[Rfam]
RNA sequence: GUGGCGUGCCUGUGAUGAAGCUCGUGUUGGUAGGGACAUCUGAGACUUGAUGAAUGCCAACUGCUCUGAUGGCGCAU
Dot-bracket structure: (((.(....................................................................))))
Numbered sequence: 001g002u003g004g005c006g007u008g009c010c011u012g013u014g015a016u017g018a019a020g021c022u023c024g025u026g027u028u029g030g031u032a033g034g035g036a037c038a039u040c041u042g043a044g045a046c047u048u049g050a051u052g053a054a055u056g057c058c059a060a061c062u063g064c065u066c067u068g069a070u071g072g073c074g075c076a077u
Stems, first nucleotide, its partner, number of pairs: 001077003005074001